[Rfam]
RNA sequence: AUAAUUUUUAAAUAAAUGCAUCGUAUAAAGUUGAAAAUAAGGUUCAACAGUUUCUACCAAAUCACCUUAAAUGAUUUGACUACGAUAUGAAUUUUUAUUUUA
Numbered sequence: 001a002u003a004a005u006u007u008u009u010a011a012a013u014a015a016a017u018g019c020a021u022c023g024u025a026u027a028a029a030g031u032u033g034a035a036a037a038u039a040a041g042g043u044u045c046a047a048c049a050g051u052u053u054c055u056a057c058c059a060a061a062u063c064a065c066c067u068u069a070a071a072u073g074a075u076u077u078g079a080c081u082a083c084g085a086u087a088u089g090a091a092u093u094u095u096u097a098u099u100u101u102a
Stems, first nucleotide, its partner, number of pairs: 018088001020086006030048006058078007
Shown here is a 102-nucleotide RNA sequence from Zhenhengia yiwuensis, a member of the family "Purine riboswitch aptamer". It scores 82 bits against the family's covariance model.